[Rfam]
RNA: Glycine riboswitch aptamer
Organism: Siminovitchia fortis
RNA sequence: AUGAAGGCAAGAGGAGAGACUGUGACAUAAAACAGCGCCGAAGGAGCAAGCAAAUCCCGCGAAUCUCUCAGGCAAAAAGACUCUUGUCCGACG
Number, nucleotide and partner (000 for none) at each position: 001a000002u000003g000004a000005a000006g088007g087008c086009a085010a084011g083012a082013g081014g000015a000016g000017a000018g000019a000020c035021u034022g033023u032024g000025a000026c000027a000028u000029a000030a000031a000032a023033c022034a021035g020036c000037g073038c072039c071040g069041a068042a000043g000044g067045a066046g065047c000048a000049a000050g060051c059052a000053a000054a000055u000056c000057c000058c000059g051060c050061g000062a000063a000064u000065c046066u045067c044068u041069c040070a000071g039072g038073c037074a000075a000076a000077a000078a000079g000080a000081c013082u012083c011084u010085u009086g008087u007088c006089c000090g000091a000092c000093g000